Rfam assigns this 71-nucleotide RNA from Scyliorhinus torazame to the family "mir-34 microRNA precursor family". Its Rfam clan is "mir-34 clan". NCBI's taxonomy places the organism under Eukaryota, Metazoa, Selachii, Carcharhiniformes, Scyliorhinus. It scores 59 bits against the family's covariance model.
[Rfam]
RNA sequence: GGUUUGGAGGCAGUGUAGUUAGCUGAUUGCGGGCAGCAAUUGACAAUCGCUAUUUACACUACCAACAAAAU
Numbered sequence: 001g002g003u004u005u006g007g008a009g010g011c012a013g014u015g016u017a018g019u020u021a022g023c024u025g026a027u028u029g030c031g032g033g034c035a036g037c038a039a040u041u042g043a044c045a046a047u048c049g050c051u052a053u054u055u056a057c058a059c060u061a062c063c064a065a066c067a068a069a070a071u
Stems, first nucleotide, its partner, number of pairs: 003069004009063002012060007020052003024049006
Dot-bracket structure: ..((((..((.(((((((.(((.((((((..............))))))))).))))))).))..))))..
Rfam describes the family as follows. Human mir-34a was discovered computationally and later experimentally verified. The mature sequence is excised from the 5' arm of the hairpin.